Rfam assigns this 434-nucleotide part of an RNA from Massarina eburnea to the family "Eukaryotic large subunit ribosomal RNA". The match comes from Rfam's covariance-model search (2737 bits). Pairs were carried over by alignment from the consensus structure, which is taken from published work.

RNA sequence: AGUAGUAGCAAAUACUUAAAUAAGAACUUUAAGGACUAAAGUAGGGAAAGGUUCCGUGUAAACAGCAGUUAGACACAGGUUAGUUAACCCUUAGAGAUAGGGCAACUCUGUUUUAAUGUCAGCGCUCGCGCUGCGCCCCUAAAAGGGAAGCUAGUUAAUAUUCUAGCACCUAGAUGUAGAUUCUCUGCAGCAACGCAACUAAGAGUAGAGACCCUAGCAGGAGCCCUAAGAAGAGUUCUCUUUUCUUCUUAACAGUCUAUUACCCUAAAAUUAGUUUAUCUAGAGCUAGGGUUUAGUAGCUAGAAAAGCGCUGCACUUUUAUAGCGUUUAGUGCGCCCCUAACAGGCCUUAAAAAUCCGCUUAAAGGAAUAGUUUUCACGCUAGGUCGUACUUAUAACUGCAGCAGGUCUCUAAGGUAAACAGCCUCUAGUUAA
Numbered sequence: 001a002g003u004a005g006u007a008g009c010a011a012a013u014a015c016u017u018a019a020a021u022a023a024g025a026a027c028u029u030u031a032a033g034g035a036c037u038a039a040a041g042u043a044g045g046g047a048a049a050g051g052u053u054c055c056g057u058g059u060a061a062a063c064a065g066c067a068g069u070u071a072g073a074c075a076c077a078g079g080u081u082a083g084u085u086a087a088c089c090c091u092u093a094g095a096g097a098u099a100g101g102g103c104a105a106c107u108c109u110g111u112u113u114u115a116a117u118g119u120c121a122g123c124g125c126u127c128g129c130g131c132u133g134c135g136c137c138c139c140u141a142a143a144a145g146g147g148a149a150g151c152u153a154g155u156u157a158a159u160a161u162u163c164u165a166g167c168a169c170c171u172a173g174a175u176g177u178a179g180a181u182u183c184u185c186u187g188c189a190g191c192a193a194c195g196c197a198a199c200u201a202a203g204a205g206u207a208g209a210g211a212c213c214c215u216a217g218c219a220g221g222a223g224c225c226c227u228a229a230g231a232a233g234a235g236u237u238c239u240c241u242u243u244u245c246u247u248c249u250u251a252a253c254a255g256u257c258u259a260u261u262a263c264c265c266u267a268a269a270a271u272u273a274g275u276u277u278a279u280c281u282a283g284a285g286c287u288a289g290g291g292u293u294u295a296g297u298a299g300c301u302a303g304a305a306a307a308g309c310g311c312u313g314c315a316c317u318u319u320u321a322u323a324g325c326g327u328u329u330a331g332u333g334c335g336c337c338c339c340u341a342a343c344a345g346g347c348c349u350u351a352a353a354a355a356u357c358c359g360c361u362u363a364a365a366g367g368a369a370u371a372g373u374u375u376u377c378a379c380g381c382u383a384g385g386u387c388g389u390a391c392u393u394a395u396a397a398c399u400g401c402a403g404c405a406g407g408u409c410u411c412u413a414a415g416g417u418a419a420a421c422a423g424c425c426u427c428u429a430g431u432u433a434a
Stems, first nucleotide, its partner, number of pairs: 015033006034432004043412004049392002054078001056076004064070001085388001087386001089146002094140001096112003100109003120133003150167005170384004175380003179376001180374001186197003204361003208357002213346003219340003223336002226331003229249006254301003262292006271283004309326005315320001398407002414426004